[Rfam]
RNA sequence: CGCUCCGAGGAGCGUUGCAGCGCCUCCCACCGGCAGGGCCGGCGGGGCGUGAGGCUCGGGCAUCAUCUGGCAACGACGCUCAUCCACA
Numbered sequence: 001c002g003c004u005c006c007g008a009g010g011a012g013c014g015u016u017g018c019a020g021c022g023c024c025u026c027c028c029a030c031c032g033g034c035a036g037g038g039c040c041g042g043c044g045g046g047g048c049g050u051g052a053g054g055c056u057c058g059g060g061c062a063u064c065a066u067c068u069g070g071c072a073a074c075g076a077c078g079c080u081c082a083u084c085c086a087c088a
Base pairs, nucleotide, nucleotide: 002061003060005059006058007057008056021049022048023047024046025045026044
RNA: SAH (S-adenosyl-L-homocysteine) riboswitch aptamer